Description
A member of the RNA family "Ribosomal S15 leader" from Aquirhabdus parva, 119 nucleotides long. The family is grouped with related families in Rfam's "Ribosomal Protein S15 Leader clan". For this family Rfam cites "Pseudoknot and translational control in the expression of the S15 ribosomal protein" (Benard et al., Biochimie, 1996). Lineage of the source: Bacteria > Pseudomonadota > Gammaproteobacteria > Moraxellaceae > Aquirhabdus. From the family's description: The E. coli Ribosomal S15 gene 5' UTR can form two alternative structures.

RNA sequence: GCCACCUGCUGUAGUGAUGCACGGCAGACACUCAUAUUAUUUAUGCAUCUCGGAGAUUAAUCAUGGCAUUAACUAAUGCUGAUCGCGCUGAUAUCAUUGCAAAAUUUGCUCGUGCAGAA
Numbered sequence: 001g002c003c004a005c006c007u008g009c010u011g012u013a014g015u016g017a018u019g020c021a022c023g024g025c026a027g028a029c030a031c032u033c034a035u036a037u038u039a040u041u042u043a044u045g046c047a048u049c050u051c052g053g054a055g056a057u058u059a060a061u062c063a064u065g066g067c068a069u070u071a072a073c074u075a076a077u078g079c080u081g082a083u084c085g086c087g088c089u090g091a092u093a094u095c096a097u098u099g100c101a102a103a104a105u106u107u108g109c110u111c112g113u114g115c116a117g118a119a
Stems, first nucleotide, its partner, number of pairs: 007026006048072001052070002055067001